Source information: The family of this 247-nucleotide RNA from Streptomyces sp. RP5T is "Streptomyces sRNA 4677". A reference for the family is Hindra et al. (2014), "Complex intra-operonic dynamics mediated by a small RNA in Streptomyces coelicolor", PLoS One. The pairing is the family consensus, mapped onto this sequence. Lineage of the source: Bacteria > Bacillati > Actinomycetes > Kitasatosporales > Streptomyces. The family's RNA type in Rfam is small RNA.

RNA sequence: UACUCCGGAGGCGCGGGCGGCCUUUCUCAAAGAACCCCGGGCUGAAAGAAACCCCACCAAGCCCCACCCCUCCUCCCGCCGAAGCCGCAGCUCACUCGCCCGAGUGAACAUCGCCAACUGAGCUGGAUUUCCGCCCGGUUGCUUGCUCUACAGUCGGCGCAACACAACCGCAGACAUGCAACGGCCCUCGCGGGGACUGGCAUCCCGAUGCGAGGGCCUGACCACCAAGGAAGAAGAGACCUUCCCG
Numbered sequence: 001u002a003c004u005c006c007g008g009a010g011g012c013g014c015g016g017g018c019g020g021c022c023u024u025u026c027u028c029a030a031a032g033a034a035c036c037c038c039g040g041g042c043u044g045a046a047a048g049a050a051a052c053c054c055c056a057c058c059a060a061g062c063c064c065c066a067c068c069c070c071u072c073c074u075c076c077c078g079c080c081g082a083a084g085c086c087g088c089a090g091c092u093c094a095c096u097c098g099c100c101c102g103a104g105u106g107a108a109c110a111u112c113g114c115c116a117a118c119u120g121a122g123c124u125g126g127a128u129u130u131c132c133g134c135c136c137g138g139u140u141g142c143u144u145g146c147u148c149u150a151c152a153g154u155c156g157g158c159g160c161a162a163c164a165c166a167a168c169c170g171c172a173g174a175c176a177u178g179c180a181a182c183g184g185c186c187c188u189c190g191c192g193g194g195g196a197c198u199g200g201c202a203u204c205c206c207g208a209u210g211c212g213a214g215g216g217c218c219u220g221a222c223c224a225c226c227a228a229g230g231a232a233g234a235a236g237a238g239a240c241c242u243u244c245c246c247g
Stems, first nucleotide, its partner, number of pairs: 007226002010223001016080004092107006122158005183218005189212003193206004229245005